[Rfam]
RNA sequence: CAUUGAUCACGUCGAGGGUCUGAUUGUCGGCUCGUCCCCCGCCGCAUUGGACUUGGACAAAGGCCUCAUCCCCUCUCCGGGCCUUUGUCCCCUAUUUGAAGCCGCCAUAGCCUUACCUCCAGGCUAUGGCGGCUUUGU
Number, nucleotide and partner (000 for none) at each position: 001c000002a000003u000004u000005g000006a000007u000008c000009a000010c000011g000012u000013c000014g000015a000016g000017g000018g000019u051020c050021u049022g048023a047024u046025u000026g000027u000028c000029g043030g042031c041032u000033c000034g000035u000036c000037c000038c000039c000040c000041g031042c030043c029044g000045c000046a024047u023048u022049g021050g020051a019052c000053u000054u000055g090056g089057a088058c087059a086060a085061a084062g083063g082064c081065c080066u000067c000068a000069u000070c000071c000072c000073c000074u000075c000076u000077c000078c000079g000080g065081g064082c063083c062084u061085u060086u059087g058088u057089c056090c055091c000092c000093u000094a000095u000096u000097u000098g000099a134100a000101g000102c132103c131104g130105c129106c128107a127108u126109a125110g124111c123112c122113u121114u000115a000116c000117c000118u000119c000120c000121a113122g112123g111124c110125u109126a108127u107128g106129g105130c104131g103132g102133c000134u099135u000136u000137g000138u000
RNA: Alphaproteobacterial sRNA ar7
Organism: Rhizobium metallidurans